The record is a 66-nucleotide RNA from Lentibacillus cibarius, which matches "Bacillaceae-1 RNA" in Rfam. The family's consensus secondary structure is taken from published work. Taxonomically the source falls in Lentibacillus (Bacteria, Bacillati, Bacilli, Bacillaceae). Rfam 15.1 lists 5,721 matches to the family in 247 species.
RNA sequence: AACAGUGGCCAGCAGGCUAAGUUCGCGACGUCCUGUCGCAACGCCUGCACUAGCACGUCCUGUGCG
Numbered sequence: 001a002a003c004a005g006u007g008g009c010c011a012g013c014a015g016g017c018u019a020a021g022u023u024c025g026c027g028a029c030g031u032c033c034u035g036u037c038g039c040a041a042c043g044c045c046u047g048c049a050c051u052a053g054c055a056c057g058u059c060c061u062g063u064g065c066g
Stems, first nucleotide, its partner, number of pairs: 012048006025039005053065004